[Rfam]
RNA: c-di-GMP-I riboswitch aptamer
RNA sequence: AAGCGGAAAAGGCACACUUAUCGAAAGAUAAGGUCGCAAAGCGGCAGACCUGCAGGUUCGCGAAACCGAUGGUGGCUGAGCUGCCGAA
Numbered sequence: 001a002a003g004c005g006g007a008a009a010a011g012g013c014a015c016a017c018u019u020a021u022c023g024a025a026a027g028a029u030a031a032g033g034u035c036g037c038a039a040a041g042c043g044g045c046a047g048a049c050c051u052g053c054a055g056g057u058u059c060g061c062g063a064a065a066c067c068g069a070u071g072g073u074g075g076c077u078g079a080g081c082u083g084c085c086g087a088a
Stems, first nucleotide, its partner, number of pairs: 012037002017032006040082003045078003048073003055067004
Dot-bracket structure: ...........((...((((((....))))))...))..(((..((((((....((((.....))))...)))..))).)))......